[Rfam]
RNA: mir-172 microRNA precursor family
Organism: Cajanus cajan
RNA sequence: GUAUCUGCGGCUGCAGCAGCAUCAAGAUUCACACUUCCUAAUUAGCCAACACUUCAUGAGUUCAAACUCUUACACAUGUAUAUGUUGGUUCUCUUUGGUGUAUGAAGUUCCAAUAGAAGUGGGAAUCUUGAUGAUGCUGCAUCAGCAAAUAC
Number, nucleotide and partner (000 for none) at each position: 001g000002u000003a000004u000005c000006u000007g000008c000009g000010g143011c000012u141013g140014c139015a138016g137017c136018a135019g000020c133021a132022u131023c130024a129025a128026g127027a126028u125029u124030c123031a000032c121033a120034c119035u118036u117037c116038c000039u000040a000041a000042u000043u000044a000045g000046c000047c000048a000049a000050c000051a000052c000053u000054u000055c000056a000057u000058g000059a000060g000061u000062u000063c000064a000065a000066a000067c000068u000069c000070u000071u000072a000073c000074a000075c000076a000077u000078g000079u000080a000081u000082a000083u000084g000085u000086u000087g000088g000089u000090u000091c000092u000093c000094u000095u000096u000097g000098g000099u000100g000101u000102a000103u000104g000105a000106a000107g000108u000109u000110c000111c000112a000113a000114u000115a000116g037117a036118a035119g034120u033121g032122g000123g030124a029125a028126u027127c026128u025129u024130g023131a022132u021133g020134a000135u018136g017137c016138u015139g014140c013141a012142u000143c010144a000145g000146c000147a000148a000149a000150u000151a000152c000